[Rfam]
RNA sequence: AGCUGAUGCACAGGACGGCUUUUUCCUCCCAGUGCCGUCGCAGCAGCUGUUCCCCUCUGGAGGUUUUUAACCUUCACAUCUCAUGGGCCGCGGUUUCCGCCGGCCCAUUUUU
Numbered sequence: 001a002g003c004u005g006a007u008g009c010a011c012a013g014g015a016c017g018g019c020u021u022u023u024u025c026c027u028c029c030c031a032g033u034g035c036c037g038u039c040g041c042a043g044c045a046g047c048u049g050u051u052c053c054c055c056u057c058u059g060g061a062g063g064u065u066u067u068u069a070a071c072c073u074u075c076a077c078a079u080c081u082c083a084u085g086g087g088c089c090g091c092g093g094u095u096u097c098c099g100c101c102g103g104c105c106c107a108u109u110u111u112u
Stems, first nucleotide, its partner, number of pairs: 001048005007042003015038004058076007084107006090100004

A member of the RNA family "Alphaproteobacterial ar15" from Shinella fusca, 112 nucleotides long. It is annotated as a small RNA. Its Rfam clan is "suhB sRNA clan". NCBI's taxonomy places the organism under Bacteria, Pseudomonadota, Alphaproteobacteria, Hyphomicrobiales, Shinella. The pairing is the family consensus, mapped onto this sequence.